[Rfam]
RNA sequence: AAGGCAACUUUUUGCCGAGUGAAUCGAACAUCGAUCUCUCUCUUUUUCCCAGUUGCCAAAAUCAUGUAAUGGCCGCGUGAGGAAUACGUUGAUCGGUUAUGUAAUUUCUAAUGUAACCGAUCUUUUAUUCUUUGCUGCUAAAUAU
Dot-bracket structure: ..(((((((.......(((.((((((.....)))).)).)))........)))))))......((.((..(((.....(((.(.......(((.((((((...(....)...)))))).)))...).)))...)))..)).))..